[Rfam]
RNA sequence: CCCCGGGCAAGUUGGCACACCCCCUGCAAUACCGUUCCCGACAAUCACAUAAAGCGUCCCCCUCAAUGGCGAGGGGGCACUUCCCGAUCGAACGGGAUUGGACAAAGGCGUCCUCGCUGGGUAACCGGCGGGACGCC
Numbered sequence: 001c002c003c004c005g006g007g008c009a010a011g012u013u014g015g016c017a018c019a020c021c022c023c024c025u026g027c028a029a030u031a032c033c034g035u036u037c038c039c040g041a042c043a044a045u046c047a048c049a050u051a052a053a054g055c056g057u058c059c060c061c062c063u064c065a066a067u068g069g070c071g072a073g074g075g076g077g078c079a080c081u082u083c084c085c086g087a088u089c090g091a092a093c094g095g096g097a098u099u100g101g102a103c104a105a106a107g108g109c110g111u112c113c114u115c116g117c118u119g120g121g122u123a124a125c126c127g128g129c130g131g132g133a134c135g136c137c
Base pairs, nucleotide, nucleotide: 012105013104014103015027016026017025054080056078057077058076060074061073063072064071082097083096084095085094086093107137108136109135110134111133112132113131115130116129117128118127119126120125
The family of this 137-nucleotide sequence from Zestomonas carbonaria is "Pseudomonas sRNA P11". NCBI's taxonomy places the organism under Bacteria, Pseudomonadati, Pseudomonadota, Pseudomonadales, Zestomonas. The base pairs follow the family's consensus structure, which was predicted with RNAalifold. This small RNA (sRNA) was computationally identified in the genome of the opportunistic pathogen Pseudomonas aeruginosa and its expression verified by northern blot analysis. P11 is located between a putative threonine protein kinase and putative nitrate reductase and appears to be conserved in several Pseudomonas species. Rfam classes the family as a non-coding RNA gene. The match comes from Rfam's covariance-model search (119 bits).